[Rfam]
This 49-nucleotide RNA sequence from Roseovarius sp. TE539 belongs to the Rfam family "SAM/SAH riboswitch aptamer". The literature on the family includes a 2019 paper in Nucleic Acids Res by Weickhmann et al., "The structure of the SAM/SAH-binding riboswitch". The match comes from Rfam's covariance-model search (58 bits). Pairs were carried over by alignment from the consensus structure, which is taken from published work. Gene Ontology terms of the family: S-adenosylmethionine metabolic process and regulation of gene expression.
RNA sequence: ACCCCGUCACAACGGCUUCCUGGCGUGGCGGUUGAAAAUCAAUGGAGCG
Number, nucleotide and partner (000 for none) at each position: 001a000002c000003c000004c031005c030006g029007u028008c027009a026010c025011a000012a000013c022014g021015g048016c047017u046018u000019c045020c044021u014022g013023g000024c000025g010026u009027g008028g007029c006030g005031g004032u000033u000034g000035a000036a000037a000038a000039u000040c000041a000042a000043u000044g020045g019046a017047g016048c015049g000